Potassium channel RNA editing signal: a 114-nucleotide RNA from Gambusia affinis. Lineage of the source: Eukaryota > Acanthomorphata > Poeciliidae > Poeciliinae > Gambusia. Rfam describes the family as follows. This family represents a group of sequences related to the human potassium channel Kv1.1 hairpin element which directs the efficient modification of an adenosine to inosine by an adenosine deaminase acting on RNA (ADAR). The ADAR modification causes an isoleucine/valine recoding event which lies in the ion-conducting pore of the potassium channel. It is thought that this editing event targets the process of fast inactivation and allows a more rapid recovery from inactivation at negative potentials. For this family Rfam cites "Control of human potassium channel inactivation by editing of a small mRNA hairpin" (Bhalla et al., Nat Struct Mol Biol, 2004).
RNA sequence: GUGGGUUACGGGGAUAUGCACCCCGUGACGAUCGGGGGCAAGAUUGUGGGGUCCCUGUGCGCGAUCGCGGGUGUGUUGACCAUAGCGUUACCCGUGCCCGUCAUCGUGUCCAAC
Numbered sequence: 001g002u003g004g005g006u007u008a009c010g011g012g013g014a015u016a017u018g019c020a021c022c023c024c025g026u027g028a029c030g031a032u033c034g035g036g037g038g039c040a041a042g043a044u045u046g047u048g049g050g051g052u053c054c055c056u057g058u059g060c061g062c063g064a065u066c067g068c069g070g071g072u073g074u075g076u077u078g079a080c081c082a083u084a085g086c087g088u089u090a091c092c093c094g095u096g097c098c099c100g101u102c103a104u105c106g107u108g109u110c111c112a113a114c
Stems, first nucleotide, its partner, number of pairs: 001114002004111002007108005013102003018097004037077004050062001